[Rfam]
A member of the RNA family "tRNA" from Haloferula luteola, 72 nucleotides long.
RNA sequence: GGCGGAGUAGCCAAGUGGUAAGGCAGAGGUUUGCAAAACCUCCAUUCGUGGGUUCGAUUCCCACCUCCGCCU
Numbered sequence: 001g002g003c004g005g006a007g008u009a010g011c012c013a014a015g016u017g018g019u020a021a022g023g024c025a026g027a028g029g030u031u032u033g034c035a036a037a038a039c040c041u042c043c044a045u046u047c048g049u050g051g052g053u054u055c056g057a058u059u060c061c062c063a064c065c066u067c068c069g070c071c072u
Stems, first nucleotide, its partner, number of pairs: 001071007010024003026042005048064005

Taxonomically the source falls in Haloferula (Bacteria, Pseudomonadati, Verrucomicrobiales, Verrucomicrobiaceae).
The match comes from Rfam's covariance-model search (70 bits).
The base pairs follow the family's consensus structure, which is taken from published work.